SAM riboswitch aptamer (S box leader): a 112-nucleotide RNA from Staphylococcus simulans. It scores 73 bits against the family's covariance model.
[Rfam]
RNA sequence: AACUUAUCUAGAGAAGUAGAGGGAAUUGGCCCGAUGACGCUUCAGCAACAGAAGAUUCAACCAUUGAAUCUGACUGUGCUACAUCCAACAAGUAUAACUUGAAAGAUAGGUG
Numbered sequence: 001a002a003c004u005u006a007u008c009u010a011g012a013g014a015a016g017u018a019g020a021g022g023g024a025a026u027u028g029g030c031c032c033g034a035u036g037a038c039g040c041u042u043c044a045g046c047a048a049c050a051g052a053a054g055a056u057u058c059a060a061c062c063a064u065u066g067a068a069u070c071u072g073a074c075u076g077u078g079c080u081a082c083a084u085c086c087a088a089c090a091a092g093u094a095u096a097a098c099u100u101g102a103a104a105g106a107u108a109g110g111u112g
Stems, first nucleotide, its partner, number of pairs: 002111007013043005021032003026088004044080004049076002053071006084104001089101005